Rfam assigns this 114-nucleotide RNA from Rhinopomastus cyanomelas to the family "Small nucleolar RNA SNORD90". A reference for the family is Huttenhofer et al. (2001), "RNomics: an experimental approach that identifies 201 candidates for novel, small, non-messenger RNAs in mouse", EMBO J. About the family: snoRNA HBII-295 belongs to the family of C/D snoRNAs.
RNA sequence: UAGUUUAAGGUUUUAGUGUCUAAUGAUGAAGCUGCAUAGGGCAGAUUCUGAGCUGAGAAGUCAUUUCUCUCCACUGAUACGCUCUCUGUGCCAUCUGAAGACACUACGUACUGU
Number, nucleotide and partner (000 for none) at each position: 001u000002a000003g000004u000005u000006u000007a000008a000009g000010g000011u000012u000013u000014u106015a105016g104017u103018g102019u101020c100021u099022a000023a000024u000025g000026a000027u000028g000029a000030a000031g094032c000033u000034g091035c090036a089037u088038a000039g083040g082041g000042c000043a000044g078045a000046u000047u077048c076049u000050g074051a000052g072053c000054u000055g069056a068057g067058a000059a000060g000061u000062c000063a000064u000065u000066u000067c057068u056069c055070u000071c000072c052073a000074c050075u000076g048077a047078u044079a000080c000081g000082c040083u039084c000085u000086c000087u000088g037089u036090g035091c034092c000093a000094u031095c000096u000097g000098a000099a021100g020101a019102c018103a017104c016105u015106a014107c000108g000109u000110a000111c000112u000113g000114u000
The base pairs follow the family's consensus structure, which was predicted with RNAalifold.